RNA sequence: GGCGUUUUUCGCACAGGCGGAGCUCGACCGCCGACCGAAGUGAUGGUCGCCUUCAUCGACCAACAGCGCCACACGUCUGGGGUCGAGUCGAUCUGUCGCCUGUUGCCGGUCGCCCCG
Numbered sequence: 001g002g003c004g005u006u007u008u009u010c011g012c013a014c015a016g017g018c019g020g021a022g023c024u025c026g027a028c029c030g031c032c033g034a035c036c037g038a039a040g041u042g043a044u045g046g047u048c049g050c051c052u053u054c055a056u057c058g059a060c061c062a063a064c065a066g067c068g069c070c071a072c073a074c075g076u077c078u079g080g081g082g083u084c085g086a087g088u089c090g091a092u093c094u095g096u097c098g099c100c101u102g103u104u105g106c107c108g109g110u111c112g113c114c115c116c117g
Stems, first nucleotide, its partner, number of pairs: 016032005078117005089112002092109002095106002098103001